[Rfam]
RNA sequence: GUUCGCUCGACUUGGCACGCGCCCUGCAAUAACGACUUCGACAAUCACAUAAAGCGUCCCUCUCAACGGCGAGGGGGCACUUCCCGACAGAACGGGAUUGGACAAAGGCGUCCUCGCUGGGUAACCGGCGGGACGCC
Number, nucleotide and partner (000 for none) at each position: 001g000002u000003u000004c000005g000006c000007u000008c000009g000010a000011c000012u105013u104014g103015g027016c026017a025018c000019g000020c000021g000022c000023c000024c000025u017026g016027c015028a000029a000030u000031a000032a000033c000034g000035a000036c000037u000038u000039c000040g000041a000042c000043a000044a000045u000046c000047a000048c000049a000050u000051a000052a000053a000054g080055c000056g078057u077058c076059c000060c074061u073062c000063u072064c071065a000066a000067c000068g000069g000070c000071g064072a063073g061074g060075g000076g058077g057078c056079a000080c054081u000082u097083c096084c095085c094086g093087a000088c000089a000090g000091a000092a000093c086094g085095g084096g083097a082098u000099u000100g000101g000102a000103c014104a013105a012106a000107g137108g136109c135110g134111u133112c132113c131114u000115c130116g129117c128118u127119g126120g125121g000122u000123a000124a000125c120126c119127g118128g117129c116130g115131g113132g112133a111134c110135g109136c108137c107
Shown here is a 137-nucleotide RNA sequence from Pseudomonas cavernae, a member of the family "Pseudomonas sRNA P11". The family's RNA type in Rfam is non-coding RNA gene. The source organism's lineage runs through Bacteria, Pseudomonadati, Gammaproteobacteria, Pseudomonadales and Pseudomonas. A reference for the family is Livny et al. (2006), "Identification of 17 Pseudomonas aeruginosa sRNAs and prediction of sRNA-encoding genes in 10 diverse pathogens using the bioinformatic tool sRNAPredict2", Nucleic Acids Res. It scores 118 bits against the family's covariance model. The base pairs follow the family's consensus structure, which was predicted with RNAalifold. This small RNA (sRNA) was computationally identified in the genome of the opportunistic pathogen Pseudomonas aeruginosa and its expression verified by northern blot analysis. P11 is located between a putative threonine protein kinase and putative nitrate reductase and appears to be conserved in several Pseudomonas species.